[Rfam]
A member of the RNA family "c-di-GMP-II-GAG riboswitch aptamer", 114 nucleotides long. Its family is annotated with regulation of gene expression and cyclic-di-GMP binding in the Gene Ontology. A reference for the family is Weinberg et al. (2017), "Bioinformatic analysis of riboswitch structures uncovers variant classes with altered ligand specificity", Proc Natl Acad Sci U S A. The family's consensus secondary structure is taken from published work. The sequence is in the family's curated seed alignment.
RNA sequence: CGGAAACACGGACGCAUCGAUCCUCGGGCACCACAGCUACACGGUCGCCCGUCGAACCGGAAGCCCGGUCCGACGGCCCGAGGGGAGCGAGUGGCGAGACCGGCCGUGACUUGA
Numbered sequence: 001c002g003g004a005a006a007c008a009c010g011g012a013c014g015c016a017u018c019g020a021u022c023c024u025c026g027g028g029c030a031c032c033a034c035a036g037c038u039a040c041a042c043g044g045u046c047g048c049c050c051g052u053c054g055a056a057c058c059g060g061a062a063g064c065c066c067g068g069u070c071c072g073a074c075g076g077c078c079c080g081a082g083g084g085g086a087g088c089g090a091g092u093g094g095c096g097a098g099a100c101c102g103g104c105c106g107u108g109a110c111u112u113g114a
Base pairs, nucleotide, nucleotide: 003112004111007108008107009106010105011104013089014088015087022083023082024081025080026079027078028077029076043101044100045097046096047095048094049093